[Rfam]
RNA sequence: AAAGUUGAUAGAGGCGCGACGCGAAAGAGUAUCAAGCCUGAGGGGACACCCGAAGACAGCUCGAGAAAGGUCAAGUCGCCGAAACGAUGAUUCCGGUAGGGAUCACCAGUUGGGCAUGGGAAGAAUAUUUCCAUGACUCCCGCUUUCGACAGGAAGUGGAGGAGCUAUCGAUCGC
Numbered sequence: 001a002a003a004g005u006u007g008a009u010a011g012a013g014g015c016g017c018g019a020c021g022c023g024a025a026a027g028a029g030u031a032u033c034a035a036g037c038c039u040g041a042g043g044g045g046a047c048a049c050c051c052g053a054a055g056a057c058a059g060c061u062c063g064a065g066a067a068a069g070g071u072c073a074a075g076u077c078g079c080c081g082a083a084a085c086g087a088u089g090a091u092u093c094c095g096g097u098a099g100g101g102a103u104c105a106c107c108a109g110u111u112g113g114g115c116a117u118g119g120g121a122a123g124a125a126u127a128u129u130u131c132c133a134u135g136a137c138u139c140c141c142g143c144u145u146u147c148g149a150c151a152g153g154a155a156g157u158g159g160a161g162g163a164g165c166u167a168u169c170g171a172u173c174g175c
Stems, first nucleotide, its partner, number of pairs: 006170006016079005023072002032064002035061003083111003086107001088105006112138002115135008140159007
RNA: Lysine riboswitch aptamer
Organism: Sutterella sp. CAG:521